This 105-nucleotide RNA sequence from Pyrus ussuriensis x Pyrus communis belongs to the Rfam family "MIR397 microRNA precursor family". Gene Ontology terms of the family: RISC complex and miRNA-mediated post-transcriptional gene silencing. The literature on the family includes a 2009 paper in BMC Genomics by Mica et al., "High throughput approaches reveal splicing of primary microRNA transcripts and tissue specific expression of mature microRNAs in Vitis vinifera". Taxonomically the source falls in Pyrus (Eukaryota, Streptophytina, Mesangiospermae, Pentapetalae).
RNA sequence: GAUAGAAACAUAAUUGGGUGCAGCGCUGACGAAAGUUUCCGAUGCCUAAUGAAGAUUCGUAAGGAAUACGGACUUUCAUCAACGCUGCACUCAAUGAUGUUUCUU
Numbered sequence: 001g002a003u004a005g006a007a008a009c010a011u012a013a014u015u016g017g018g019u020g021c022a023g024c025g026c027u028g029a030c031g032a033a034a035g036u037u038u039c040c041g042a043u044g045c046c047u048a049a050u051g052a053a054g055a056u057u058c059g060u061a062a063g064g065a066a067u068a069c070g071g072a073c074u075u076u077c078a079u080c081a082a083c084g085c086u087g088c089a090c091u092c093a094a095u096g097a098u099g100u101u102u103c104u105u
Stems, first nucleotide, its partner, number of pairs: 006102006013095013027081002031077002